[Rfam]
RNA sequence: CUGGCAAUGAUGAUUGGCGCAGGGGUACGGACCUCAGCUAGAUAAUGGGAGCUGAGUGUGGCUGUUUCUUGCUCGGCUUGCAUGUAGUGGGCUGUUUGAGAACAUCCACACGAGAAAAACGCCAAGGUCUGAGCCGG
Numbered sequence: 001c002u003g004g005c006a007a008u009g010a011u012g013a014u015u016g017g018c019g020c021a022g023g024g025g026u027a028c029g030g031a032c033c034u035c036a037g038c039u040a041g042a043u044a045a046u047g048g049g050a051g052c053u054g055a056g057u058g059u060g061g062c063u064g065u066u067u068c069u070u071g072c073u074c075g076g077c078u079u080g081c082a083u084g085u086a087g088u089g090g091g092c093u094g095u096u097u098g099a100g101a102a103c104a105u106c107c108a109c110a111c112g113a114g115a116a117a118a119a120c121g122c123c124a125a126g127g128u129c130u131g132a133g134c135c136g137g
Stems, first nucleotide, its partner, number of pairs: 001137005
RNA: Small nucleolar RNA SNORD94